[Rfam]
RNA sequence: GGCCUCAAGUGAUGGAGAGCAAUACCCAGGGAUGACUGUGACAUUGGGAUGUAUUCGUACUGUCUGAUGGGGCC
Number, nucleotide and partner (000 for none) at each position: 001g074002g073003c072004c071005u070006c069007a068008a000009g000010u000011g064012a063013u062014g061015g060016a000017g000018a000019g058020c057021a055022a054023u053024a052025c051026c048027c047028a000029g045030g044031g000032a000033u000034g042035a000036c000037u000038g000039u000040g000041a000042c034043a000044u030045u029046g000047g027048g026049a000050u000051g025052u024053a023054u022055u021056c000057g020058u019059a000060c015061u014062g013063u012064c011065u000066g000067a000068u007069g006070g005071g004072g003073c002074c001